Source information:
The record is an 88-nucleotide RNA sequence from Xenopus tropicalis, which matches "Small nucleolar RNA SNORD127" in Rfam. On this family, see Yang et al., Nucleic Acids Res 2006: "snoSeeker: an advanced computational package for screening of guide and orphan snoRNA genes in the human genome". Taxonomically the source falls in Silurana (Eukaryota, Bilateria, Craniata, Amphibia). By type it is a C/D-box small nucleolar RNA.
RNA sequence: AGGCAACGGUGAUGAACAAAAAUGGUGUCUUUAUGUAAUUCCUGUGUUACUUCAUGUAGACAACAGUCCCUCUAAACUGCUGUUACCA
Number, nucleotide and partner (000 for none) at each position: 001a000002g087003g086004c000005a084006a083007c082008g000009g000010u000011g000012a000013u000014g000015a000016a000017c000018a000019a000020a000021a000022a000023u000024g000025g000026u000027g000028u000029c000030u000031u000032u000033a000034u000035g000036u000037a000038a000039u000040u000041c000042c000043u000044g000045u000046g000047u000048u000049a000050c000051u000052u000053c000054a000055u000056g000057u000058a000059g000060a000061c000062a000063a000064c000065a000066g000067u000068c000069c000070c000071u000072c000073u000074a000075a000076a000077c000078u000079g000080c000081u000082g007083u006084u005085a000086c003087c002088a000